[Rfam]
RNA sequence: AGUCUGUUAUCGCUGAAUUCUGUUUCGUUCAGAAGCGGGGGAACCAACGAAGCUAUGGGCCGAUGUGCCGGUGCUUCACGGGGAUGAAUCGUUUUGUCCGGUGGACAAAACGUAGGGCGACUCCAGCGCCCGAAUCCGUCAGCUAACCUCGCAAGCGUAUCGGAGAGACUGC
Numbered sequence: 001a002g003u004c005u006g007u008u009a010u011c012g013c014u015g016a017a018u019u020c021u022g023u024u025u026c027g028u029u030c031a032g033a034a035g036c037g038g039g040g041g042a043a044c045c046a047a048c049g050a051a052g053c054u055a056u057g058g059g060c061c062g063a064u065g066u067g068c069c070g071g072u073g074c075u076u077c078a079c080g081g082g083g084a085u086g087a088a089u090c091g092u093u094u095u096g097u098c099c100g101g102u103g104g105a106c107a108a109a110a111c112g113u114a115g116g117g118c119g120a121c122u123c124c125a126g127c128g129c130c131c132g133a134a135u136c137c138g139u140c141a142g143c144u145a146a147c148c149u150c151g152c153a154a155g156c157g158u159a160u161c162g163g164a165g166a167g168a169c170u171g172c
Stems, first nucleotide, its partner, number of pairs: 011157004018034005035152006045081001082137003090112010115131004

Rfam assigns this 172-nucleotide RNA sequence from Paenibacillus oceani to the family "c-di-AMP riboswitch aptamer (ydaO/yuaA leader)". Taxonomically the source falls in Paenibacillus (Bacteria, Bacillota, Bacilli, Caryophanales). The match comes from Rfam's covariance-model search (93 bits).